[Rfam]
Nucleotides: 113
Stems, first nucleotide, its partner, number of pairs: 002048003011042006018035005024082004063108003086096004
Number, partner (000 for none) and nucleotide at each position: 001000u002048g003047g004046u005000u006000a007000u008000g009000a010000g011042g012041u013040g014039c015038u016037u017000g018035a019034g020033g021032g022031u023000g024082c025081u026080a027079a028000g029000a030000a031022g032021c033020c034019u035018u036000g037016a038015a039014g040013c041012a042011c043000g044000g045000a046004g047003c048002u049000u050000c051000g052000g053000g054000a055000a056000g057000g058000g059000u060000u061000c062000g063108g064107u065106g066000a067000c068000g069000u070000u071000a072000c073000c074000u075000c076000a077000a078000c079027u080026u081025a082024g083000c084000u085000a086096g087095g088094c089093u090000g091000a092000a093089a094088g095087c096086c097000g098000a099000a100000a101000u102000a103000a104000a105000a106065c107064a108063c109000c110000a111000u112000c113000a